Annotation:
A member of the RNA family "Small nucleolar RNA SNORA28" from Jaculus jaculus, 119 nucleotides long. For this family Rfam cites "RNomics: an experimental approach that identifies 201 candidates for novel, small, non-messenger RNAs in mouse" (Huttenhofer et al., EMBO J, 2001).
[Rfam]
RNA sequence: AAGUAACACUGUGUGGCAGAUGAUAAAACUGUCUGAUAGAAUUUGAGCUUGCUAUAGCAAGAAUCUAACCUAGUCCCACGUUCUCUCCUCACUAAGACAAGCUAUUAGACUUAAACAAU
Numbered sequence: 001a002a003g004u005a006a007c008a009c010u011g012u013g014u015g016g017c018a019g020a021u022g023a024u025a026a027a028a029c030u031g032u033c034u035g036a037u038a039g040a041a042u043u044u045g046a047g048c049u050u051g052c053u054a055u056a057g058c059a060a061g062a063a064u065c066u067a068a069c070c071u072a073g074u075c076c077c078a079c080g081u082u083c084u085c086u087c088c089u090c091a092c093u094a095a096g097a098c099a100a101g102c103u104a105u106u107a108g109a110c111u112u113a114a115a116c117a118a119u
Base pairs, nucleotide, nucleotide: 009047010046012040014038015037017035018034019033020032021031022030064109065108066107067106071104072103073102079101084097085096086095
Description:
Rfam describes the family as follows. ACA28 is a member of the H/ACA class of snoRNA that guide the sites of modification of uridines to pseudouridines.